A member of the RNA family "mir-2796 microRNA precursor family" from Neodiprion lecontei, 76 nucleotides long. Gene Ontology terms of the family: miRNA-mediated post-transcriptional gene silencing and RISC complex. The source organism's lineage runs through Eukaryota, Eumetazoa, Ecdysozoa, Diprionidae and Neodiprion. Pairs were carried over by alignment from the consensus structure, which was predicted with RNAalifold. The family has 6 seed sequences and 119 matches in Rfam 15.1.

RNA sequence: GUGCGGGGCAGGGGUUUCUAUCGGCCUCCAGCAGCUACGAUGGUUGUAGGCCGGCGGAAACUACUUGCCUCCGUCC
Numbered sequence: 001g002u003g004c005g006g007g008g009c010a011g012g013g014g015u016u017u018c019u020a021u022c023g024g025c026c027u028c029c030a031g032c033a034g035c036u037a038c039g040a041u042g043g044u045u046g047u048a049g050g051c052c053g054g055c056g057g058a059a060a061c062u063a064c065u066u067g068c069c070u071c072c073g074u075c076c
Stems, first nucleotide, its partner, number of pairs: 005071003009067004013062007021054007029046003